[Rfam]
RNA: Plastid-psbA-1 3UTR RNA
Organism: Hibiscus trionum
RNA sequence: UUGAAGUUCCAUCUACAAAUGGAUAAGACUUUGGUUGUAGCGUAUACGAGUAUUUGAAAAUAAAUGAGCAAUAACCAUUUUCUUGUUCAAUCAAAAGUGUUGGUAUUGCUCCUUU
Dot-bracket structure: .......(((((......)))))......................................(((.((((((((...((.((.((........)).)).))...)))))))).)))